[Rfam]
RNA: Group II catalytic intron D1-D4-5
Organism: Lachnospiraceae bacterium M18-1
RNA sequence: GAGAACUGAAUACACGAAUGGUCGAAUGAGAGGGUAACGCCUCGAAAGGCAUCCUUAAUACUCCGGCCUGCAUUAUGUGAGUAAACACAGAAGUGUGGGAAGCCCGGUGAAGUCGGCAGAGAGAUACCGUAACAGUCAGGCUGACGAAAGCUGUCCAGAGGUGGAUGGUGUAUCCCAUAUGCCGGAGGUCUAUAAA
Number, nucleotide and partner (000 for none) at each position: 001g000002a000003g000004a000005a000006c000007u000008g000009a000010a000011u000012a000013c000014a000015c000016g000017a000018a052019u051020g000021g050022u049023c048024g000025a000026a000027u000028g000029a000030g000031a000032g042033g041034g040035u000036a000037a000038c000039g000040c034041c033042u032043c000044g000045a000046a000047a000048g023049g022050c021051a019052u018053c188054c187055u186056u185057a000058a000059u000060a000061c000062u000063c107064c106065g105066g104067c099068c098069u097070g096071c095072a094073u093074u092075a000076u089077g088078u087079g086080a000081g000082u000083a000084a000085a000086c079087a078088c077089a076090g000091a000092a074093g073094u072095g071096u070097g069098g068099g067100a000101a000102g000103c000104c066105c065106g064107g063108u000109g000110a000111a000112g000113u000114c184115g183116g182117c181118a180119g000120a000121g000122a000123g174124a173125u172126a171127c170128c146129g145130u144131a000132a000133c000134a142135g141136u000137c000138a000139g000140g000141c135142u134143g000144a130145c129146g128147a000148a000149a000150g169151c168152u167153g166154u165155c164156c163157a162158g000159a000160g000161g000162u157163g156164g155165a154166u153167g152168g151169u150170g127171u126172a125173u124174c123175c000176c000177a000178u000179a000180u118181g117182c116183c115184g114185g056186a055187g054188g053189u000190c000191u000192a000193u000194a000195a000196a000